A member of the RNA family "nhaA-I RNA" from Paucimonas lemoignei, 52 nucleotides long.
RNA sequence: GGGUGCAUGCAUGUUCGUGUAUGCAGGAUUAUGCGUUGGUCGGGCCGCCACG
Numbered sequence: 001g002g003g004u005g006c007a008u009g010c011a012u013g014u015u016c017g018u019g020u021a022u023g024c025a026g027g028a029u030u031a032u033g034c035g036u037u038g039g040u041c042g043g044g045c046c047g048c049c050a051c052g
Stems, first nucleotide, its partner, number of pairs: 005024008034052003038049003
Dot-bracket structure: ....((((((((....)))))))).........(((.(((......))))))

About the family: Acidobacteria, Alphaproteobacteria, Betaproteobacteria and Gammaproteobacteria, Verrucomicrobia, cand. division NC10. Pairs were carried over by alignment from the consensus structure, which is taken from published work.